RNA sequence: ACAUGGCUUAGUUAGGAGGCAAAGAUCAAAUUAGAUCGAAAGAUGUUCUGUCUGUGGUCGCUUCAAUCUAAGGCCUUUUGAGGGGACAAUUCCGUUCUUUCCAUUGCCAAUUGUCCUCCAAGCAGCCUUGGACAUUU
Numbered sequence: 001a002c003a004u005g006g007c008u009u010a011g012u013u014a015g016g017a018g019g020c021a022a023a024g025a026u027c028a029a030a031u032u033a034g035a036u037c038g039a040a041a042g043a044u045g046u047u048c049u050g051u052c053u054g055u056g057g058u059c060g061c062u063u064c065a066a067u068c069u070a071a072g073g074c075c076u077u078u079u080g081a082g083g084g085g086a087c088a089a090u091u092c093c094g095u096u097c098u099u100u101c102c103a104u105u106g107c108c109a110a111u112u113g114u115c116c117u118c119c120a121a122g123c124a125g126c127c128u129u130g131g132a133c134a135u136u137u
Stems, first nucleotide, its partner, number of pairs: 004021002007018003034059005042052001045051002068131007077122004082118009

Annotation
Small nucleolar RNA U19: a 137-nucleotide sequence from Salix brachista. Lineage of the source: Eukaryota > Streptophyta > Streptophytina > Magnoliopsida > Salix. Pairs were carried over by alignment from the consensus structure, which was predicted with WAR. A reference for the family is Marker et al. (2002), "Experimental RNomics: identification of 140 candidates for small non-messenger RNAs in the plant Arabidopsis thaliana", Curr Biol. Rfam links the family to the GO terms nucleolus and RNA processing. The family has 3 seed sequences and 421 matches in Rfam 15.1. The family's RNA type in Rfam is H/ACA-box small nucleolar RNA.